[Rfam]
RNA sequence: CGCUGGCUGAGACAUCACAGACUCAUCGGCUUGGGGGAUUUUUGUGAGUCUGAGAGGUAAGCGCCGCGGCCUGUCUUUCCGGACCUGCCCUUCACCUUGUCUGCUGCUCCUGCUGACCCCGGGCCUUGUACCCUCAGAUCAGUCACUUCGGUGCGCUCCGGUGCUGCGGCCUGUGGUUGGAUUGCCCGUGACGUCCUGACUGACUGCUGACCCACUGGCCUACGGCGCCGGCAAGAUGAAGCUGUCCCUGGUGGCUGCGGUGCUGCUG
Numbered sequence: 001c002g003c004u005g006g007c008u009g010a011g012a013c014a015u016c017a018c019a020g021a022c023u024c025a026u027c028g029g030c031u032u033g034g035g036g037g038a039u040u041u042u043u044g045u046g047a048g049u050c051u052g053a054g055a056g057g058u059a060a061g062c063g064c065c066g067c068g069g070c071c072u073g074u075c076u077u078u079c080c081g082g083a084c085c086u087g088c089c090c091u092u093c094a095c096c097u098u099g100u101c102u103g104c105u106g107c108u109c110c111u112g113c114u115g116a117c118c119c120c121g122g123g124c125c126u127u128g129u130a131c132c133c134u135c136a137g138a139u140c141a142g143u144c145a146c147u148u149c150g151g152u153g154c155g156c157u158c159c160g161g162u163g164c165u166g167c168g169g170c171c172u173g174u175g176g177u178u179g180g181a182u183u184g185c186c187c188g189u190g191a192c193g194u195c196c197u198g199a200c201u202g203a204c205u206g207c208u209g210a211c212c213c214a215c216u217g218g219c220c221u222a223c224g225g226c227g228c229c230g231g232c233a234a235g236a237u238g239a240a241g242c243u244g245u246c247c248c249u250g251g252u253g254g255c256u257g258c259g260g261u262g263c264u265g266c267u268g
Stems, first nucleotide, its partner, number of pairs: 004257006016163003020159001032122001034120004061109001063107002066104004167179005
RNA: bip internal ribosome entry site (IRES)
Organism: Vulpes vulpes